[Rfam]
Group II catalytic intron D1-D4-7: a 139-nucleotide RNA. A reference for the family is Bonen and Vogel (2001), "The ins and outs of group II introns", Trends Genet. Rfam's curators write: Group II introns are found in rRNA, tRNA and mRNA of organelles in fungi, plants and protists, and also in mRNA in bacteria. Rfam links the family to the GO term Group II intron splicing.
RNA sequence: CCGGCUGUACUUCCAGCCGUAGCCUACCGGCACAUGCGGGAUUGGUAACGAACCCGUGUGAAGCUGCCGGGACAACGCAACCUGUGAAUAAAUCCACAAGGCCGACCCGUGAAAACCAGACCUGUCCCGGUUUUGAUCC
Numbered sequence: 001c002c003g004g005c006u007g008u009a010c011u012u013c014c015a016g017c018c019g020u021a022g023c024c025u026a027c028c029g030g031c032a033c034a035u036g037c038g039g040g041a042u043u044g045g046u047a048a049c050g051a052a053c054c055c056g057u058g059u060g061a062a063g064c065u066g067c068c069g070g071g072a073c074a075a076c077g078c079a080a081c082c083u084g085u086g087a088a089u090a091a092a093u094c095c096a097c098a099a100g101g102c103c104g105a106c107c108c109g110u111g112a113a114a115a116c117c118a119g120a121c122c123u124g125u126c127c128c129g130g131u132u133u134u135g136a137u138c139c
Base pairs, nucleotide, nucleotide: 002019003018004017005016006015007014028069029068030067031066032065033060034059035058036057037056038055039054040053042051043050044049083098084097085096086095100107101106114132115131116130117129119127